[Rfam]
RNA sequence: UGUCGCUGCCCUCCUUGGGCGUUUCCUCCCUAGACUUGGGCCGUUCGCUCACGCGGACGGCCCCUUUCUUUUUGGGC
Numbered sequence: 001u002g003u004c005g006c007u008g009c010c011c012u013c014c015u016u017g018g019g020c021g022u023u024u025c026c027u028c029c030c031u032a033g034a035c036u037u038g039g040g041c042c043g044u045u046c047g048c049u050c051a052c053g054c055g056g057a058c059g060g061c062c063c064c065u066u067u068c069u070u071u072u073u074g075g076g077c
Stems, first nucleotide, its partner, number of pairs: 008020004039062009

Record summary: A member of the RNA family "Makes More Granules Regulator RNA (mmgR)" from Xanthobacter versatilis, 77 nucleotides long. Rfam classes the family as a small RNA. It is one of the family's seed sequences. From the family's description: SuhB later renamed mmgR (makes more granules regulator) was a putative non-coding RNA found multiple times in the Agrobacterium tumefaciens genome and related alpha-proteobacteria. Other non-coding RNAs uncovered in the same analysis include: speF, ybhL, metA, and serC.Several studies inSinorhizobium meliloti showed that suhB element is indeed a non-coding RNA:firstly it was detected on Northern blot and called Sm8RNA, secondly in an RNAseq study referred to as SmelC689.The mutant phenotype's (strain lacking the small RNA) cytoplasm contains higher content of polyhydroxybutyrate (PBH)storage granules than wild type strain. The sRNA is required to limit the PBH intracellular accumulation when the nitrogen-fixing Sinorhizobium meliloti is under condition of surplus carbon in relation to nitrogen.